[Rfam]
RNA sequence: AAAUCUCUCUUAAUGGCACUGGAAGAAUUCACGGGGCCUUGUUUGUAUAAGCAUAUAUAUUUAUGAUUACAAAAAUGAGACAUUGUAUUCCUCUCGUGGAUCUCCCGUUCCAUACAGAGCGAUUC
Numbered sequence: 001a002a003a004u005c006u007c008u009c010u011u012a013a014u015g016g017c018a019c020u021g022g023a024a025g026a027a028u029u030c031a032c033g034g035g036g037c038c039u040u041g042u043u044u045g046u047a048u049a050a051g052c053a054u055a056u057a058u059a060u061u062u063a064u065g066a067u068u069a070c071a072a073a074a075a076u077g078a079g080a081c082a083u084u085g086u087a088u089u090c091c092u093c094u095c096g097u098g099g100a101u102c103u104c105c106c107g108u109u110c111c112a113u114a115c116a117g118a119g120c121g122a123u124u125c
Base pairs, nucleotide, nucleotide: 003123004122005121007119008118009117010116013113014112015111016110018108021105022104023103025102026101029099030098031097032096033095034094035093036092
The family of this 125-nucleotide RNA from Lepeophtheirus salmonis is "mir-263 microRNA precursor family".